[Rfam]
RNA sequence: AUACCUUUCUCGGCCUUUUGUCUAAGAUCAAGUGUAGUACCCGUUCUUAUCAAAUUAAUAUGAUAUCUGGUAUGUGGGCCAAUUGCCAACACGAUAUUAAAUUUAGAGAAAUUGACGUGGUUGCAUAUUCUAGUUGAUCUAAUUACAUUUUUGUUACCAUUGUUUAAAAUUACCAAAUAUGCCUAACCAACGUUCU
Numbered sequence: 001a002u003a004c005c006u007u008u009c010u011c012g013g014c015c016u017u018u019u020g021u022c023u024a025a026g027a028u029c030a031a032g033u034g035u036a037g038u039a040c041c042c043g044u045u046c047u048u049a050u051c052a053a054a055u056u057a058a059u060a061u062g063a064u065a066u067c068u069g070g071u072a073u074g075u076g077g078g079c080c081a082a083u084u085g086c087c088a089a090c091a092c093g094a095u096a097u098u099a100a101a102u103u104u105a106g107a108g109a110a111a112u113u114g115a116c117g118u119g120g121u122u123g124c125a126u127a128u129u130c131u132a133g134u135u136g137a138u139c140u141a142a143u144u145a146c147a148u149u150u151u152u153g154u155u156a157c158c159a160u161u162g163u164u165u166a167a168a169a170u171u172a173c174c175a176a177a178u179a180u181g182c183c184u185a186a187c188c189a190a191c192g193u194u195c196u
Stems, first nucleotide, its partner, number of pairs: 008027003012023002015020001048072005074090002077087003115148001117146006129137002151189001153187004158181003163176001
Background: This 196-nucleotide sequence from Phtheirospermum japonicum belongs to the Rfam family "U2 spliceosomal RNA". The match comes from Rfam's covariance-model search (67 bits). Its Rfam clan is "U2 clan". Rfam 15.1 lists 71,512 matches to the family in 2,642 species. The family's consensus secondary structure is taken from published work. NCBI's taxonomy places the organism under Eukaryota, Viridiplantae, Euphyllophyta, lamiids, Phtheirospermum.